The record is a 65-nucleotide RNA sequence from Mytilus edulis, which matches "Selenocysteine insertion sequence 1" in Rfam. Rfam describes the family as follows. The incorporation of selenocysteine into a protein sequence is directed by an in-frame UGA codon (usually a stop codon) within the coding region of the mRNA. Selenoprotein mRNAs contain a conserved secondary structure in the 3' UTR that is required for the distinction of UGA stop from UGA selenocysteine. The selenocysteine insertion sequence (SECIS) is around 60 nt in length and adopts a hairpin structure which is sufficiently well-defined and conserved to act as a computational screen for selenoprotein genes. A reference for the family is Lambert et al. (2002), "A survey of metazoan selenocysteine insertion sequences", Biochimie.
RNA sequence: AUCUUGUUAUGAUGGUAUGAUACUAAACCCCUCGCGGGGAGGAUUAUGCCUGAUAUUCAUAUGAU
Numbered sequence: 001a002u003c004u005u006g007u008u009a010u011g012a013u014g015g016u017a018u019g020a021u022a023c024u025a026a027a028c029c030c031c032u033c034g035c036g037g038g039g040a041g042g043a044u045u046a047u048g049c050c051u052g053a054u055a056u057u058c059a060u061a062u063g064a065u
Stems, first nucleotide, its partner, number of pairs: 001065003005061001014050008023041001029039003